[Rfam]
RNA: Small nucleolar RNA SNORA79
RNA sequence: UGAUGACUGUUCCUCUCAUUGUUGCAAGCCUUAAACAAUGGGAUUUUAUGUCAUCAGAUACUAAAGUUGGCCUUUCUUCACUCAAAGUGUCUUUAGGUGGUUGGGCCAUCUAUGACACUAUUGAAUUUUGCAGGGUCACACAUUC
Numbered sequence: 001u002g003a004u005g006a007c008u009g010u011u012c013c014u015c016u017c018a019u020u021g022u023u024g025c026a027a028g029c030c031u032u033a034a035a036c037a038a039u040g041g042g043a044u045u046u047u048a049u050g051u052c053a054u055c056a057g058a059u060a061c062u063a064a065a066g067u068u069g070g071c072c073u074u075u076c077u078u079c080a081c082u083c084a085a086a087g088u089g090u091c092u093u094u095a096g097g098u099g100g101u102u103g104g105g106c107c108a109u110c111u112a113u114g115a116c117a118c119u120a121u122u123g124a125a126u127u128u129u130g131c132a133g134g135g136u137c138a139c140a141c142a143u144u145c
Stems, first nucleotide, its partner, number of pairs: 001056007014043005020037004069137006082124004086119006095111005